[Rfam]
RNA sequence: AUAAUGAUACUUCUGUCUCGUCCUAAAGUCGAGCGUGAUAAAACCGUCGUAACAAAGGAGGGCAGCCCGGAGAGAUCCUCGGGGAGGUGAAAUUCCUAUGA
Numbered sequence: 001a002u003a004a005u006g007a008u009a010c011u012u013c014u015g016u017c018u019c020g021u022c023c024u025a026a027a028g029u030c031g032a033g034c035g036u037g038a039u040a041a042a043a044c045c046g047u048c049g050u051a052a053c054a055a056a057g058g059a060g061g062g063c064a065g066c067c068c069g070g071a072g073a074g075a076u077c078c079u080c081g082g083g084g085a086g087g088u089g090a091a092a093u094u095c096c097u098a099u100g101a
Stems, first nucleotide, its partner, number of pairs: 012098001013065006066084003070080003085097003
Record summary
Rfam assigns this 101-nucleotide RNA sequence from Holtiella tumoricola to the family "pemK RNA". The source organism's lineage runs through Bacteria, Clostridia, Lachnospirales, Cellulosilyticaceae and Holtiella.